Rfam assigns this 298-nucleotide RNA from Darwinula stevensoni to the family "Metazoan signal recognition particle RNA".
Lineage of the source: Eukaryota > Panarthropoda > Oligostraca > Podocopida > Darwinula.
By type it is a non-coding RNA gene.
Rfam's curators write: The signal recognition particle (SRP) is a universally conserved ribonucleoprotein. It is involved in the co-translational targeting of proteins to membranes. The eukaryotic SRP consists of a 300-nucleotide 7S RNA and six proteins: SRPs 72, 68, 54, 19, 14, and 9. Archaeal SRP consists of a 7S RNA and homologues of the eukaryotic SRP19 and SRP54 proteins.
[Rfam]
RNA sequence: GCUGGGAGCCGUGGCGCGCUCCUGUAAUCCAGCUACCCUGGAGGCCGGGAUUCGGGAUGGUGUGGCAGUCGGGAGACCUGUUGGACGUACGCCUAUGUUGACCGGGCGUCCGCACUAAGCUCGGCAUCCAUAUGGGGGACUGAGGGUAGCCUUGGUUCCCCAGGUGGCCUAAGGAGGGGGGAAAUGGGUCAGGGGGGCAACCCAGCAGCCAAAACCUCCCGUGUCGAGCAGUAGUGGGAUCGCGCCUGUGAAUAGGAAGCGUUCUGCAGCCCGGCUGAAAUGCCGGACUGAGUCCUUU
Numbered sequence: 001g002c003u004g005g006g007a008g009c010c011g012u013g014g015c016g017c018g019c020u021c022c023u024g025u026a027a028u029c030c031a032g033c034u035a036c037c038c039u040g041g042a043g044g045c046c047g048g049g050a051u052u053c054g055g056g057a058u059g060g061u062g063u064g065g066c067a068g069u070c071g072g073g074a075g076a077c078c079u080g081u082u083g084g085a086c087g088u089a090c091g092c093c094u095a096u097g098u099u100g101a102c103c104g105g106g107c108g109u110c111c112g113c114a115c116u117a118a119g120c121u122c123g124g125c126a127u128c129c130a131u132a133u134g135g136g137g138g139a140c141u142g143a144g145g146g147u148a149g150c151c152u153u154g155g156u157u158c159c160c161c162a163g164g165u166g167g168c169c170u171a172a173g174g175a176g177g178g179g180g181g182a183a184a185u186g187g188g189u190c191a192g193g194g195g196g197g198c199a200a201c202c203c204a205g206c207a208g209c210c211a212a213a214a215c216c217u218c219c220c221g222u223g224u225c226g227a228g229c230a231g232u233a234g235u236g237g238g239a240u241c242g243c244g245c246c247u248g249u250g251a252a253u254a255g256g257a258a259g260c261g262u263u264c265u266g267c268a269g270c271c272c273g274g275c276u277g278a279a280a281u282g283c284c285g286g287a288c289u290g291a292g293u294c295c296u297u298u
Stems, first nucleotide, its partner, number of pairs: 001045003004023006028042003047296009058285006066277008078269004083264006092256005098250001103248007110238002113236005119229009128167004133162013168174002176219005185212001187210003194203003